Source information
terC RNA: a 64-nucleotide RNA from Ensifer fredii.
RNA sequence: CAUUGGUGCCGGGCCCCUCUGGCGAGAGUUUUUUACGGCGCUCUCGUGAUGUCGGUACCGCCAG
Dot-bracket structure: .....(((((((.........((((((((..........))))))))....)))))))......
It is one of the family's seed sequences.